[Rfam]
RNA sequence: UUUUCCGUGUUGAGACUUGUUUAGACAAGGAAUUUUGCGGAAUUACCAGUUUUGCCUGACAGUCCUUCCACGCGGCAAUGGCGUAAGACGUGUUGAACUUUCAGGCAGUUAGCGGGCUGCGGGUUGCAGCCUGGCCGGUAAAGGGAAGCUUCCGGAGAAACAAUCCCGGUCAUUCCUCUGAUAAUUGCGCUGUAUUUCCACCUGAAAUACAGGCUACCGACACUCUGCGCCUCUUAAGCGUUCGACAACCGGGAGGUUGACGGCGCGAACAGUCACGAGGCCAUCGGUUCACUCCCGGUCAGCGUCACCAUGCCCGCAGCUUUGUCGUCAA
Numbered sequence: 001u002u003u004u005c006c007g008u009g010u011u012g013a014g015a016c017u018u019g020u021u022u023a024g025a026c027a028a029g030g031a032a033u034u035u036u037g038c039g040g041a042a043u044u045a046c047c048a049g050u051u052u053u054g055c056c057u058g059a060c061a062g063u064c065c066u067u068c069c070a071c072g073c074g075g076c077a078a079u080g081g082c083g084u085a086a087g088a089c090g091u092g093u094u095g096a097a098c099u100u101u102c103a104g105g106c107a108g109u110u111a112g113c114g115g116g117c118u119g120c121g122g123g124u125u126g127c128a129g130c131c132u133g134g135c136c137g138g139u140a141a142a143g144g145g146a147a148g149c150u151u152c153c154g155g156a157g158a159a160a161c162a163a164u165c166c167c168g169g170u171c172a173u174u175c176c177u178c179u180g181a182u183a184a185u186u187g188c189g190c191u192g193u194a195u196u197u198c199c200a201c202c203u204g205a206a207a208u209a210c211a212g213g214c215u216a217c218c219g220a221c222a223c224u225c226u227g228c229g230c231c232u233c234u235u236a237a238g239c240g241u242u243c244g245a246c247a248a249c250c251g252g253g254a255g256g257u258u259g260a261c262g263g264c265g266c267g268a269a270c271a272g273u274c275a276c277g278a279g280g281c282c283a284u285c286g287g288u289u290c291a292c293u294c295c296c297g298g299u300c301a302g303c304g305u306c307a308c309c310a311u312g313c314c315c316g317c318a319g320c321u322u323u324g325u326c327g328u329c330a331a
Stems, first nucleotide, its partner, number of pairs: 003042006016029004052108008063097001065095001070091003075082002114322011132301007143177005152169004187214002190212004195207004216288005229281005243262002246259005

RNase E 5' UTR element: a 331-nucleotide sequence from Cronobacter sakazakii. Its family is annotated with regulation of gene expression in the Gene Ontology. From the family's description: This family represents a conserved element found in the 5' UTR of RNase E mRNA. RNase E is a key regulatory enzyme in the pathway of mRNA degradation in E. coli that is able to auto-regulate the degradation of its own mRNA in response to changes in RNase E activity. This rne 5' UTR element acts as a sensor of cellular RNase E concentration enabling tight regulation of RNase E concentration and synthesis. The organism belongs to Cronobacter sakazakii, within Bacteria. The base pairs follow the family's consensus structure, which is taken from published work. A reference for the family is Diwa et al. (2000), "An evolutionarily conserved RNA stem-loop functions as a sensor that directs feedback regulation of RNase E gene expression", Genes Dev.